[Rfam]
RNA: U12 minor spliceosomal RNA
RNA sequence: UUGCCUUAAACUAAUGAGUAAGGAAAACAAAGCGAGCGGUGAGAGCUGCUCGCCGCGCAUGACAGAAACUUGUUGCGCAUGAAUUUAUGGAGGGGUUAUAGGCUGGCCGAGCGCUGACGCUGCUUACUUUGCAGAACUCGCUCGAGCGGGCCUCCCAACCC
Number, nucleotide and partner (000 for none) at each position: 001u000002u000003g000004c023005c022006u021007u020008a019009a000010a000011c000012u000013a000014a000015u000016g000017a000018g000019u008020a007021a006022g005023g004024a000025a000026a000027a000028c000029a000030a000031a000032g053033c052034g051035a050036g049037c048038g047039g046040u000041g000042a000043g000044a000045g000046c039047u038048g037049c036050u035051c034052g033053c032054c000055g078056c077057g076058c075059a074060u000061g000062a000063c000064a000065g000066a000067a000068a000069c000070u000071u000072g000073u000074u059075g058076c057077g056078c055079a000080u000081g000082a000083a000084u000085u000086u000087a000088u000089g000090g000091a000092g000093g161094g160095g159096u158097u157098a000099u000100a153101g152102g151103c150104u149105g000106g147107c000108c144109g143110a000111g141112c140113g139114c000115u000116g000117a000118c000119g000120c134121u133122g132123c131124u000125u000126a000127c000128u000129u000130u000131g123132c122133a121134g120135a000136a000137c000138u000139c113140g112141c111142u000143c109144g108145a000146g000147c106148g000149g104150g103151c102152c101153u100154c000155c000156c000157a097158a096159c095160c094161c093